[Rfam]
RNA sequence: GGAGGCGUAUUCGGUCUGGUGACCGGCGCGGUCUUCAAAAUCGCUGAGCGGCAGAUCCUGUCGCUGGCGGGUUCGAUUCCCGUCCGCCUCC
Numbered sequence: 001g002g003a004g005g006c007g008u009a010u011u012c013g014g015u016c017u018g019g020u021g022a023c024c025g026g027c028g029c030g031g032u033c034u035u036c037a038a039a040a041u042c043g044c045u046g047a048g049c050g051g052c053a054g055a056u057c058c059u060g061u062c063g064c065u066g067g068c069g070g071g072u073u074c075g076a077u078u079c080c081c082g083u084c085c086g087c088c089u090c091c
Stems, first nucleotide, its partner, number of pairs: 001091007009083001011026006028044005047065005068082004
A member of the RNA family "Selenocysteine transfer RNA" from Mycobacterium sp. E740, 91 nucleotides long. Rfam 15.1 lists 4,211 matches to the family in 3,344 species.